[Rfam]
RNA sequence: UUCACCCUACAAACCCUGAAUUCCCUUCUUCGUCCUCCAUGAUUCUCCCACCAUCUUCUUCUUCUUCAUCUUCCCAUUACACGCAGCAACAGAAAUCUCCAAGACUCGACAGUUUCAAGAUCUCACCUCUUCACGAAGAUCCUCAAGAUUCAAGAGUUAUGAUCGAUUUGUUCUAGACUUCUACUAUCUUUCUCCCGCUUUGUGUAAUUUUUGCUCUUUUGGCCAC
Numbered sequence: 001u002u003c004a005c006c007c008u009a010c011a012a013a014c015c016c017u018g019a020a021u022u023c024c025c026u027u028c029u030u031c032g033u034c035c036u037c038c039a040u041g042a043u044u045c046u047c048c049c050a051c052c053a054u055c056u057u058c059u060u061c062u063u064c065u066u067c068a069u070c071u072u073c074c075c076a077u078u079a080c081a082c083g084c085a086g087c088a089a090c091a092g093a094a095a096u097c098u099c100c101a102a103g104a105c106u107c108g109a110c111a112g113u114u115u116c117a118a119g120a121u122c123u124c125a126c127c128u129c130u131u132c133a134c135g136a137a138g139a140u141c142c143u144c145a146a147g148a149u150u151c152a153a154g155a156g157u158u159a160u161g162a163u164c165g166a167u168u169u170g171u172u173c174u175a176g177a178c179u180u181c182u183a184c185u186a187u188c189u190u191u192c193u194c195c196c197g198c199u200u201u202g203u204g205u206a207a208u209u210u211u212u213g214c215u216c217u218u219u220u221g222g223c224c225a226c
Base pairs, nucleotide, nucleotide: 074222075221076220083214084213085212092124093123095121096120097119098118102115103114104113105112132204133203134202135201136200137199138198145190146189147188148187149186154180155179156178157177158176161173162172164170